[Rfam]
RNA sequence: CACGUCCCGUGGCGUGAGGUCUCCAGCCGCUUGGCGAAUCUCCUGGCGCACCUUCCCCGGCGCCAGGCCACGCGAAGCGGAUGGGGACCUGGCGGCAUGGGUCACCGACG
Numbered sequence: 001c002a003c004g005u006c007c008c009g010u011g012g013c014g015u016g017a018g019g020u021c022u023c024c025a026g027c028c029g030c031u032u033g034g035c036g037a038a039u040c041u042c043c044u045g046g047c048g049c050a051c052c053u054u055c056c057c058c059g060g061c062g063c064c065a066g067g068c069c070a071c072g073c074g075a076a077g078c079g080g081a082u083g084g085g086g087a088c089c090u091g092g093c094g095g096c097a098u099g100g101g102u103c104a105c106c107g108a109c110g
Base pairs, nucleotide, nucleotide: 010097011096013094014093015092018089019088021086022085023084024083025082027080028079029078030077031076032075034073035072036071042067043066044065045064046063047062048061049060

The family of this 110-nucleotide RNA sequence from Cryptosporangium phraense is "mraW RNA". The base pairs follow the family's consensus structure, which is taken from published work. By type it is a cis-regulatory element. The organism belongs to Cryptosporangium, within Bacteria.